[Rfam]
RNA sequence: UGUUUGUAGCGAAAUUAAUUGAAAGGAGAAGUUAUCUGGCCGGUUGUUGUUUUUUUCUCUGGAUUUUUUUUCUGAAUCCUCAAUAAUCGUCGACAUAUCUGCUUACCGAACUUCUCAUAUUC
Number, nucleotide and partner (000 for none) at each position: 001u000002g000003u000004u000005u000006g000007u000008a000009g000010c000011g000012a000013a000014a000015u000016u000017a000018a000019u000020u000021g000022a000023a000024a000025g000026g116027a115028g114029a113030a112031g111032u110033u109034a000035u000036c000037u000038g103039g102040c101041c000042g099043g098044u097045u000046g094047u093048u092049g091050u000051u000052u000053u000054u000055u000056u000057c000058u000059c000060u000061g000062g000063a000064u000065u000066u000067u000068u000069u000070u000071u000072c000073u000074g000075a000076a000077u000078c000079c000080u000081c000082a000083a000084u000085a000086a000087u000088c000089g000090u000091c049092g048093a047094c046095a000096u000097a044098u043099c042100u000101g040102c039103u038104u000105a000106c000107c000108g000109a033110a032111c031112u030113u029114c028115u027116c026117a000118u000119a000120u000121u000122c000
Rfam assigns this 122-nucleotide sequence from Striga hermonthica to the family "Small nucleolar RNA snoR109". Rfam classes the family as an H/ACA-box small nucleolar RNA. A reference for the family is Marker et al. (2002), "Experimental RNomics: identification of 140 candidates for small non-messenger RNAs in the plant Arabidopsis thaliana", Curr Biol. Lineage of the source: Eukaryota > Spermatophyta > Magnoliopsida > lamiids > Striga. The family has 6 seed sequences and 680 matches in Rfam 15.1.